[Rfam]
RNA sequence: GUAUUUUAUCCUUCAUUCCACCGGAGUCUGUGUAAAGUGGCAAUCAGAUUUCAGUGGCCUGAAGGGUAAGACGCA
Dot-bracket structure: ..........(((((...(((.((((.(((..............))).)))).)))...)))))...........
Description: This 75-nucleotide RNA from Sphaeramia orbicularis belongs to the Rfam family "mir-205 microRNA precursor family". A reference for the family is Lim et al. (2003), "Vertebrate microRNA genes", Science. Taxonomically the source falls in Sphaeramia (Eukaryota, Metazoa, Eumetazoa, Osteoglossocephalai). Gene Ontology terms of the family: miRNA-mediated post-transcriptional gene silencing and RISC complex.